Record summary
Rfam assigns this 93-nucleotide sequence from Agrobacterium fabrum to the family "Repression of heat shock gene expression (ROSE) element". This family represents a 5' UTR cis-regulatory element found in heat shock mRNAs and is known as the ROSE (repression of heat shock gene expression) element. The ROSE element is a negative regulator of heat shock gene expression. The secondary structure is thought to be regulated by temperature. It is annotated as an RNA thermoregulator. Taxonomically the source falls in Agrobacterium fabrum (Bacteria, Hyphomicrobiales, Rhizobiaceae, Agrobacterium). The family's consensus secondary structure is taken from published work.

[Rfam]
RNA sequence: CCAGCCGCUGACGACGGGGCUGGACUUGCUGGGAGCGCCGCCUUUCGGCGCUUCCGUACCCAUGUUGCUUCAAGGAGGAUAUGGCUAUGGCAA
Numbered sequence: 001c002c003a004g005c006c007g008c009u010g011a012c013g014a015c016g017g018g019g020c021u022g023g024a025c026u027u028g029c030u031g032g033g034a035g036c037g038c039c040g041c042c043u044u045u046c047g048g049c050g051c052u053u054c055c056g057u058a059c060c061c062a063u064g065u066u067g068c069u070u071c072a073a074g075g076a077g078g079a080u081a082u083g084g085c086u087a088u089g090g091c092a093a
Base pairs, nucleotide, nucleotide: 001023002022003021004020005019006018008017009016032054033053034052035051036050037049038048039047040046055089056088057087058086060084061083062082063081064080065079066078068077069076070075